[Rfam]
About this RNA:
Shown here is a 142-nucleotide sequence from Priestia taiwanensis, a member of the family "c-di-AMP riboswitch aptamer (ydaO/yuaA leader)". Taxonomically the source falls in Priestia (Bacteria, Bacillati, Bacillota, Caryophanales). About the family: This family represents a conserved RNA structure found upstream of the ydaO and yuaA genes in Bacillus subtilis and related genes in other bacteria.
RNA sequence: UACCGUAAAUCGCUGAAUCCAUUUUGGAGCGGGGGAACCGAAUCGAUGAUUUAAUCAUCCUGGGGUGAAUUCUUGAAAAAGAUAGGGCUACUCUCAAAGCCCGAAUCCGACAGCUAACUUCGUAAGCGUUCAGAGAGAAGGG
Numbered sequence: 001u002a003c004c005g006u007a008a009a010u011c012g013c014u015g016a017a018u019c020c021a022u023u024u025u026g027g028a029g030c031g032g033g034g035g036a037a038c039c040g041a042a043u044c045g046a047u048g049a050u051u052u053a054a055u056c057a058u059c060c061u062g063g064g065g066u067g068a069a070u071u072c073u074u075g076a077a078a079a080a081g082a083u084a085g086g087g088c089u090a091c092u093c094u095c096a097a098a099g100c101c102c103g104a105a106u107c108c109g110a111c112a113g114c115u116a117a118c119u120u121c122g123u124a125a126g127c128g129u130u131c132a133g134a135g136a137g138a139a140g141g142g
Stems, first nucleotide, its partner, number of pairs: 011128004018028003029123006039062002063108003071082004085102004